[Rfam]
RNA sequence: CCCGCGGCAGCCGCCGCGGGGGAACUGACACCGGUACCUGACACGGCCGGUGCAG
Number, nucleotide and partner (000 for none) at each position: 001c020002c019003c018004g017005c016006g015007g014008c013009a000010g000011c000012c000013g008014c007015c006016g005017c004018g003019g002020g001021g000022g000023a000024a000025c055026u054027g053028a000029c052030a051031c050032c049033g048034g047035u046036a000037c000038c000039u000040g000041a000042c000043a000044c000045g000046g035047c034048c033049g032050g031051u030052g029053c027054a026055g025
RNA: L17-Actino-Proteobacteria ribosomal protein leader
Organism: Streptomyces sp. NRRL F-2747